[Rfam]
RNA sequence: GCGCCGCAGGUUUGUCCGCCAUCGACGAUGGCGACAUGCCCAGGUAGCCGGGGUCUUCAAGGCUACGGCGCAGCGCUGCUGCGCUGACCUUCGUUCGCAACGCAUCCCGAGGCGAACGGCCAGCGUUCCCACGCUGGUGGAUGU
Numbered sequence: 001g002c003g004c005c006g007c008a009g010g011u012u013u014g015u016c017c018g019c020c021a022u023c024g025a026c027g028a029u030g031g032c033g034a035c036a037u038g039c040c041c042a043g044g045u046a047g048c049c050g051g052g053g054u055c056u057u058c059a060a061g062g063c064u065a066c067g068g069c070g071c072a073g074c075g076c077u078g079c080u081g082c083g084c085u086g087a088c089c090u091u092c093g094u095u096c097g098c099a100a101c102g103c104a105u106c107c108c109g110a111g112g113c114g115a116a117c118g119g120c121c122a123g124c125g126u127u128c129c130c131a132c133g134c135u136g137g138u139g140g141a142u143g144u
Stems, first nucleotide, its partner, number of pairs: 011038001013036002015033001018032006044066006052089004067085007112144003119138008
A member of the RNA family "radC RNA" from Tolumonas auensis, 144 nucleotides long. Lineage of the source: Bacteria > Gammaproteobacteria > Aeromonadales > Aeromonadaceae > Tolumonas auensis. It scores 106 bits against the family's covariance model. It is annotated as a cis-regulatory element.